RNA sequence: GGAGCAGCUUCUGGAGAGACUGCGGGGUUCCGCAGCGCCGAAGGGUUCACAAUCUCAGGCAAAAGGACAGAAGAGUAUUA
Dot-bracket structure: .......((((((......((((........)))).(((((..(((.....))))).))).......)))))).......